[Rfam]
RNA sequence: GGAUAUUUGAGAGGAGCUGACCUUAGUACGAGAGGACCGGGUUGGACUGACCUCUGGUGUACCGGUUGUUCUACCAAGAGCAUGGCCGGGUAGCCAAGUCGGGAAGGGAUAAACGCUGAAGGCAUCUAAGCGUGAAGCCCCCCUCAAGAUGAGAUAUCCCCCGCAUAAGCGGUAAGACCCCUUGAAGACGACGAGGUAGAUAGGUUAGAGGUGGAAGUGCAGUAAUGUAUGGAGCUGACUAAUACUAAUAGGUCGAAG
Numbered sequence: 001g002g003a004u005a006u007u008u009g010a011g012a013g014g015a016g017c018u019g020a021c022c023u024u025a026g027u028a029c030g031a032g033a034g035g036a037c038c039g040g041g042u043u044g045g046a047c048u049g050a051c052c053u054c055u056g057g058u059g060u061a062c063c064g065g066u067u068g069u070u071c072u073a074c075c076a077a078g079a080g081c082a083u084g085g086c087c088g089g090g091u092a093g094c095c096a097a098g099u100c101g102g103g104a105a106g107g108g109a110u111a112a113a114c115g116c117u118g119a120a121g122g123c124a125u126c127u128a129a130g131c132g133u134g135a136a137g138c139c140c141c142c143c144u145c146a147a148g149a150u151g152a153g154a155u156a157u158c159c160c161c162c163g164c165a166u167a168a169g170c171g172g173u174a175a176g177a178c179c180c181c182u183u184g185a186a187g188a189c190g191a192c193g194a195g196g197u198a199g200a201u202a203g204g205u206u207a208g209a210g211g212u213g214g215a216a217g218u219g220c221a222g223u224a225a226u227g228u229a230u231g232g233a234g235c236u237g238a239c240u241a242a243u244a245c246u247a248a249u250a251g252g253u254c255g256a257a258g
Stems, first nucleotide, its partner, number of pairs: 001159008011145004017045007047102005055096003062089005067082006106140003113133005162171003173256001176254004180196005201247003204243005210236002217230005